[Rfam]
RNA sequence: AUGCCUUAAACUGAUGAGUAAGGAAAAUAACGACGCGGGGUGACGCCCGUGUCCUCGUAAACAUAACGAGAAGAAUUUUUGAAAGGGCACAGGUCUGUCUGCUGAGGUGACUCGCCUACUUUGUGAGAUGCCUCGUGGAGCCAGGACCUUCCCC
Numbered sequence: 001a002u003g004c005c006u007u008a009a010a011c012u013g014a015u016g017a018g019u020a021a022g023g024a025a026a027a028u029a030a031c032g033a034c035g036c037g038g039g040g041u042g043a044c045g046c047c048c049g050u051g052u053c054c055u056c057g058u059a060a061a062c063a064u065a066a067c068g069a070g071a072a073g074a075a076u077u078u079u080u081g082a083a084a085g086g087g088c089a090c091a092g093g094u095c096u097g098u099c100u101g102c103u104g105a106g107g108u109g110a111c112u113c114g115c116c117u118a119c120u121u122u123g124u125g126a127g128a129u130g131c132c133u134c135g136u137g138g139a140g141c142c143a144g145g146a147c148c149u150u151c152c153c154c
Stems, first nucleotide, its partner, number of pairs: 004023005032053008054070005085153003091149006100138001103135005111127005